[Rfam]
Nucleotides: 066
Base pairs, nucleotide, nucleotide: 002065003064004063005062
Number, partner (000 for none) and nucleotide at each position: 001000a002065u003064g004063c005062a006000a007000a008000u009000g010000a011000u012000g013000u014000a015000a016000a017000c018000u019000u020000c021000u022000a023000u024000u025000c026000c027000a028000c029000u030000g031000a032000g033000u034000a035000a036000c037000g038000u039000g040000a041000u042000g043000u044000u045000u046000c047000c048000a049000a050000a051000g052000g053000a054000a055000c056000c057000a058000c059000u060000g061000a062005u063004g064003c065002a066000c
Shown here is a 66-nucleotide RNA from Ptilonorhynchus violaceus, a member of the family "Small nucleolar RNA SNORD42". Rfam classes the family as a C/D-box small nucleolar RNA. A reference for the family is Galardi et al. (2002), "Purified box C/D snoRNPs are able to reproduce site-specific 2'-O-methylation of target RNA in vitro", Mol Cell Biol. A search with the family's covariance model found it, with a score of 50 bits. From the family's description: snoRNA U42 is found in intron 3 of the ribosomal protein L23a (RPL23a) gene in humans and is also present in mice.